[Rfam]
RNA sequence: GAUAAAGGGGGCGAGAAACCCCCUCGCCGAAAGACCAAGGUUUCCUGAUCAACGCUAAUCGGAUCAGGGUUAGUCGGGUCCUAAGUCGCAGUCGAAAGGCGCAGACGAUGGCCGAAUGGGUUAAUAUUCCCAUACUGUCUAUGGGAGUGAUGUGGAGACGGAGAAGUGACAACACUGCGUACAGACGGAAUUGUACGUUAAAGGGUGUAGGUAUUGAUUGCGGCAGGCAAAUCCACCGCGAGAGCCGAACCUGAUAGUACACCGAUUGCUUGCAAGAGGUGAUAAUGUGUGUAAUCCUGCUUCCAAGAAAAUCCGCUAAACAAAUGUCAUAGACACCCGUACCGUAAACCGACACAGGUGGUUGGGUUGAGAAUACUAAGGCGCU
Numbered sequence: 001g002a003u004a005a006a007g008g009g010g011g012c013g014a015g016a017a018a019c020c021c022c023c024u025c026g027c028c029g030a031a032a033g034a035c036c037a038a039g040g041u042u043u044c045c046u047g048a049u050c051a052a053c054g055c056u057a058a059u060c061g062g063a064u065c066a067g068g069g070u071u072a073g074u075c076g077g078g079u080c081c082u083a084a085g086u087c088g089c090a091g092u093c094g095a096a097a098g099g100c101g102c103a104g105a106c107g108a109u110g111g112c113c114g115a116a117u118g119g120g121u122u123a124a125u126a127u128u129c130c131c132a133u134a135c136u137g138u139c140u141a142u143g144g145g146a147g148u149g150a151u152g153u154g155g156a157g158a159c160g161g162a163g164a165a166g167u168g169a170c171a172a173c174a175c176u177g178c179g180u181a182c183a184g185a186c187g188g189a190a191u192u193g194u195a196c197g198u199u200a201a202a203g204g205g206u207g208u209a210g211g212u213a214u215u216g217a218u219u220g221c222g223g224c225a226g227g228c229a230a231a232u233c234c235a236c237c238g239c240g241a242g243a244g245c246c247g248a249a250c251c252u253g254a255u256a257g258u259a260c261a262c263c264g265a266u267u268g269c270u271u272g273c274a275a276g277a278g279g280u281g282a283u284a285a286u287g288u289g290u291g292u293a294a295u296c297c298u299g300c301u302u303c304c305a306a307g308a309a310a311a312u313c314c315g316c317u318a319a320a321c322a323a324a325u326g327u328c329a330u331a332g333a334c335a336c337c338c339g340u341a342c343c344g345u346a347a348a349c350c351g352a353c354a355c356a357g358g359u360g361g362u363u364g365g366g367u368u369g370a371g372a373a374u375a376c377u378a379a380g381g382c383g384c385u
Base pairs, nucleotide, nucleotide: 006024007023008022009021010020011019025383026382027381028380033363034362035361036360039343040342044068045067046066047065048064049063053061054060075339076338077337078336080111081110085106086105087104091100092099093098116133117132118131119130120129136335137334138333139332140331141330142329143328144327146325147321148320152316153315154314155313156312160303161302162301163300166296172290173289174288175287177198178197179196180195181194182193199256203252204251205250206249210246211245212244218241219240220239221238222237223236226234227233260281261280262279263278349358350357365377366376367375